[Rfam]
RNA: skipping-rope RNA
Organism: Gemella bergeri
RNA sequence: GAAUAAUGAAGUAGAGAUUUAGUGUUCCUACGCACCCAAGAGGUAUAAGAGAUGACGGGAUAGACACACCGCCCAUUAUUC
Numbered sequence: 001g002a003a004u005a006a007u008g009a010a011g012u013a014g015a016g017a018u019u020u021a022g023u024g025u026u027c028c029u030a031c032g033c034a035c036c037c038a039a040g041a042g043g044u045a046u047a048a049g050a051g052a053u054g055a056c057g058g059g060a061u062a063g064a065c066a067c068a069c070c071g072c073c074c075a076u077u078a079u080u081c
Stems, first nucleotide, its partner, number of pairs: 001081008011031004022067005033049001034044003054073001056071003